The family of this 63-nucleotide sequence from Equus caballus is "MAT2A 3'UTR stem loop B". A reference for the family is Parker et al. (2011), "New families of human regulatory RNA structures identified by comparative analysis of vertebrate genomes", Genome Res.
[Rfam]
Nucleotides: 063
Base pairs, nucleotide, nucleotide: 001063002062003061004060005059007056008055015045016044017043019041020040021039022038023037024030025029
Number, partner (000 for none) and nucleotide at each position: 001063a002062c003061a004060g005059g006000a007056c008055u009000u010000g011000c012000c013000a014000u015045c016044c017043u018000c019041g020040u021039g022038a023037u024030g025029u026000c027000a028000u029025a030024c031000a032000g033000a034000g035000a036000a037023g038022u039021c040020a041019c042000a043017g044016g045015g046000c047000a048000g049000u050000g051000a052000c053000u054000g055008a056007g057000g058000g059005u060004c061003u062002g063001u

The family has 28 seed sequences and 248 matches in Rfam 15.1.